[Rfam]
This 63-nucleotide sequence from Oceanobacillus picturae belongs to the Rfam family "tRNA". It scores 50 bits against the family's covariance model. Lineage of the source: Bacteria > Bacillati > Bacilli > Caryophanales > Oceanobacillus.

RNA sequence: CGUUGGUCAAGCGGUUAAGACACCGCCCUUUCACGGCGGUAACACGGGUUCGAAUCCCGUACG
Dot-bracket structure: (((..(((..........))).(((((.......)))))....(((((.......))))))))

Record summary:
Rfam describes the family as follows. Transfer RNA (tRNA) molecules are approximately 80 nucleotides in length. Gene Ontology term of the family: triplet codon-amino acid adaptor activity. Rfam classes the family as a transfer RNA. Pairs were carried over by alignment from the consensus structure, which is taken from published work.